[Rfam]
RNA sequence: UCCAGAUACGGCGACAUGGUUCCGGCCACUAUCGCAGGAAAAAUCGUUGGCGGCGUCUGCUCCCUGAGUGGUGUCCUUGUGAUCGCACUACCCGUACCUGUUAUCGUUUCCAAC
Numbered sequence: 001u002c003c004a005g006a007u008a009c010g011g012c013g014a015c016a017u018g019g020u021u022c023c024g025g026c027c028a029c030u031a032u033c034g035c036a037g038g039a040a041a042a043a044u045c046g047u048u049g050g051c052g053g054c055g056u057c058u059g060c061u062c063c064c065u066g067a068g069u070g071g072u073g074u075c076c077u078u079g080u081g082a083u084c085g086c087a088c089u090a091c092c093c094g095u096a097c098c099u100g101u102u103a104u105c106g107u108u109u110c111c112a113a114c
Base pairs, nucleotide, nucleotide: 001113005110008107009106010105011104013102014101015100016099018097021094037077038076040074049063050062
RNA: Potassium channel RNA editing signal